[Rfam]
RNA: mir-5928 microRNA precursor family
Organism: Haemonchus placei
RNA sequence: GGCACAAACUUGAAGUAGAGUAGAUUAGUAGGGUCAGCCGAUAUACUAACCUACUCUACUUCAAGUUUGUGCCC
Dot-bracket structure: (((((((((.(((((((((((((.((((((..(((....))).)))))).))))))))))))).))))))))).